[Rfam]
Nucleotides: 204
Stems, first nucleotide, its partner, number of pairs: 001050007010028002013024001015022002030038002053190003058068004071184005078177004086121002090115001094111004098200001101198006123166009135157001137154006
Number, partner (000 for none) and nucleotide at each position: 001050g002049u003048c004047a005046a006045u007044a008000a009000c010028c011027c012000a013024u014000c015022a016021c017000u018000a019000a020000a021016g022015u023000g024013a025000c026000g027011g028010g029000c030038u031037u032000g033000u034000a035000u036000g037031g038030g039000c040000c041000c042000g043000a044007u045006a046005u047004u048003g049002a050001c051000u052000a053190g054189u055188c056000u057000c058068a059067g060066u061065u062000u063000u064000a065061a066060a067059c068058u069000a070000c071184g072183u073182u074181g075180g076000u077000u078177u079176g080175g081174u082000u083000a084000u085000g086121a087120c088000a089000c090115c091000u092000u093000u094111u095110g096109g097108u098200g099000c100000a101198u102197g103196u104195u105194c106193u107000a108097g109096c110095c111094a112000u113000c114000c115090g116000c117000u118000c119000u120087g121086u122000c123166g124165u125164c126163u127162g128161u129160g130159a131158u132000u133000a134000a135157a136000a137154g138153u139152c140151c141150u142149c143000u144000u145000g146000g147000g148000u149142g150141g151140g152139g153138a154137c155000g156000g157135u158131g159130u160129u161128a162127c163126a164125g165124a166123u167000g168000u169000a170000a171000a172000a173000a174081g175080c176079c177078a178000u179000u180075c181074c182073a183072a184071c185000a186000u187000u188055g189054a190053c191000g192000a193106a194105g195104a196103a197102c198101a199000a200098u201000u202000u203000a204000c